[Rfam]
RNA sequence: CAGCCAUCCAGAGCGACCGAGAGACCUGGCUCGUCGACGUCGCAGCAACCACCCGCGAGGGCCGGUGCUACCGCCAGGACCGAUGGGAG
Numbered sequence: 001c002a003g004c005c006a007u008c009c010a011g012a013g014c015g016a017c018c019g020a021g022a023g024a025c026c027u028g029g030c031u032c033g034u035c036g037a038c039g040u041c042g043c044a045g046c047a048a049c050c051a052c053c054c055g056c057g058a059g060g061g062c063c064g065g066u067g068c069u070a071c072c073g074c075c076a077g078g079a080c081c082g083a084u085g086g087g088a089g
Stems, first nucleotide, its partner, number of pairs: 001089001004086005013043005021032003026077004044069004049065002052061003073081001
SAM riboswitch aptamer (S box leader): an 89-nucleotide RNA sequence from Quadrisphaera granulorum. NCBI's taxonomy places the organism under Bacteria, Bacillati, Actinomycetota, Actinomycetes, Quadrisphaera. The base pairs follow the family's consensus structure, which is taken from published work. The family is grouped with related families in Rfam's "SAM clan". It scores 53 bits against the family's covariance model.